[Rfam]
The family of this 183-nucleotide RNA sequence from Mycobacterium asiaticum is "c-di-AMP riboswitch aptamer (ydaO/yuaA leader)". The source organism's lineage runs through Bacteria, Bacillati, Actinomycetes, Mycobacteriales and Mycobacterium. The pairing is the family consensus, mapped onto this sequence.
RNA sequence: UAGGUAGGGAUUCCGACCCGCGGAUGGAGGCGGGGGACCCACCAGGUCCGCCGAGUUCGGACCGGGGCCUUCUGGCUCCUUGGGGUGAAGCCGCCGUUGUGUCAACGGAGACCGAUGCGGCCGGGUGACCUCUUCCACCCGAACCCGACAGCUGACCUCGCAGGCGUGUACACGAGAGGAAUU
Numbered sequence: 001u002a003g004g005u006a007g008g009g010a011u012u013c014c015g016a017c018c019c020g021c022g023g024a025u026g027g028a029g030g031c032g033g034g035g036g037a038c039c040c041a042c043c044a045g046g047u048c049c050g051c052c053g054a055g056u057u058c059g060g061a062c063c064g065g066g067g068c069c070u071u072c073u074g075g076c077u078c079c080u081u082g083g084g085g086u087g088a089a090g091c092c093g094c095c096g097u098u099g100u101g102u103c104a105a106c107g108g109a110g111a112c113c114g115a116u117g118c119g120g121c122c123g124g125g126u127g128a129c130c131u132c133u134u135c136c137a138c139c140c141g142a143a144c145c146c147g148a149c150a151g152c153u154g155a156c157c158u159c160g161c162a163g164g165c166g167u168g169u170a171c172a173c174g175a176g177a178g179g180a181a182u183u
Stems, first nucleotide, its partner, number of pairs: 011166001013164002018029001030161006040082002083146003091120004123140004